[Rfam]
RNA sequence: CGAAAUGUUAUCUAGGGUUCCGCGAUGAUGUAUCGGCUGGUCCGAGAGAUAACUCACAGCCGUAAGGCUGUGUCACGGAGGGAUAAAAGCCUGGGAGAU
Numbered sequence: 001c002g003a004a005a006u007g008u009u010a011u012c013u014a015g016g017g018u019u020c021c022g023c024g025a026u027g028a029u030g031u032a033u034c035g036g037c038u039g040g041u042c043c044g045a046g047a048g049a050u051a052a053c054u055c056a057c058a059g060c061c062g063u064a065a066g067g068c069u070g071u072g073u074c075a076c077g078g079a080g081g082g083a084u085a086a087a088a089g090c091c092u093g094g095g096a097g098a099u
Base pairs, nucleotide, nucleotide: 007053008052009051010050011049012048015043016042020040021039022037023035024034025033026032027031055072056071057070058069059068060067061066074094076097080092081091082090
Description
Guanidine-I riboswitch aptamer: a 99-nucleotide sequence from Paenibacillus sp. TCA20. Taxonomically the source falls in Paenibacillus (Bacteria, Bacillati, Bacilli, Caryophanales). Pairs were carried over by alignment from the consensus structure. It scores 82 bits against the family's covariance model. From the family's description: This family represents a conserved RNA structure found upstream of the ykkC and yxkD genes in Bacillus subtilis and related genes in other bacteria.